[Rfam]
RNA sequence: UGAUAUCAGGGUCAAAAGGUACAAAUCCGAUUGUGCUUGCACAAAAAGGAUUUGGAACUUGGGACCCGUAAAACACGAGCAUGUAGCGUUAUUACGCGGAAUGCGAGUGUUUUUGAAGCGCGUAAGCAGUAUAGCAGCGAAGCGAUUCGUGAUAUCA
Number, nucleotide and partner (000 for none) at each position: 001u157002g156003a155004u154005a153006u152007c151008a000009g000010g066011g065012u064013c063014a000015a000016a060017a059018g058019g000020u056021a000022c054023a053024a052025a051026u050027c049028c048029g000030a000031u044032u043033g042034u041035g040036c000037u000038u000039g000040c035041a034042c033043a032044a031045a000046a000047a000048g028049g027050a026051u025052u024053u023054g022055g000056a020057a000058c018059u017060u016061g000062g000063g013064a012065c011066c010067c000068g000069u000070a113071a112072a111073a110074c109075a108076c107077g000078a000079g104080c103081a102082u101083g000084u000085a000086g097087c096088g095089u094090u000091a000092u000093u000094a089095c088096g087097c086098g000099g000100a000101a082102u081103g080104c079105g000106a000107g076108u075109g074110u073111u072112u071113u070114u000115g148116a147117a146118g000119c144120g143121c142122g000123u000124a000125a000126g138127c137128a000129g135130u000131a000132u000133a000134g000135c129136a000137g127138c126139g000140a000141a000142g121143c120144g119145a000146u117147u116148c115149g000150u000151g007152a006153u005154a004155u003156c002157a001

The record is a 157-nucleotide RNA sequence from a Lachnospiraceae bacterium, which matches "Clostridiales-1 RNA" in Rfam.
Pairs were carried over by alignment from the consensus structure, which is taken from published work.